[Rfam]
Nucleotides: 067
Base pairs, nucleotide, nucleotide: 001018002017003016040061041060042059043058044057045056046055047054
Number, partner (000 for none) and nucleotide at each position: 001018a002017u003016g004000c005000c006000u007000a008000g009000c010000g011000c012000u013000c014000a015000u016003c017002a018001u019000c020000u021000u022000c023000a024000c025000c026000u027000c028000c029000c030000u031000g032000u033000u034000g035000g036000a037000c038000u039000u040061a041060g042059c043058c044057g045056g046055g047054c048000c049000a050000u051000c052000g053000u054047g055046c056045c057044c058043g059042g060041c061040u062000u063000u064000u065000u066000u067000u